[Rfam]
This 149-nucleotide RNA from Apostasia shenzhenica belongs to the Rfam family "Small nucleolar RNA snoR77". The organism belongs to Apostasia, within Eukaryota. The family's consensus secondary structure was predicted with WAR. It is annotated as an H/ACA-box small nucleolar RNA. The match comes from Rfam's covariance-model search (73 bits). On this family, see Marker et al., Curr Biol 2002: "Experimental RNomics: identification of 140 candidates for small non-messenger RNAs in the plant Arabidopsis thaliana".
RNA sequence: AGGCAGCCACUUCGCCGAUCCUAGAUGGCAUUUGAGGUGUUGUUUUGCUCGAAGAUUAAAUUUUAGCUUUUGCUCUUCAGAUUCGCUGAGAACCUGGGGAUUCCAUUAUCCCUCUUCUCUGAUGCGGAUCUAGUAGGCAAAUGUACACC
Numbered sequence: 001a002g003g004c005a006g007c008c009a010c011u012u013c014g015c016c017g018a019u020c021c022u023a024g025a026u027g028g029c030a031u032u033u034g035a036g037g038u039g040u041u042g043u044u045u046u047g048c049u050c051g052a053a054g055a056u057u058a059a060a061u062u063u064u065a066g067c068u069u070u071u072g073c074u075c076u077u078c079a080g081a082u083u084c085g086c087u088g089a090g091a092a093c094c095u096g097g098g099g100a101u102u103c104c105a106u107u108a109u110c111c112c113u114c115u116u117c118u119c120u121g122a123u124g125c126g127g128a129u130c131u132a133g134u135a136g137g138c139a140a141a142u143g144u145a146c147a148c149c
Base pairs, nucleotide, nucleotide: 002041003040004039005038007037008036014029015028016027017026067143069141072138073137074136079131080130081129082128083127085125086124090117091116092115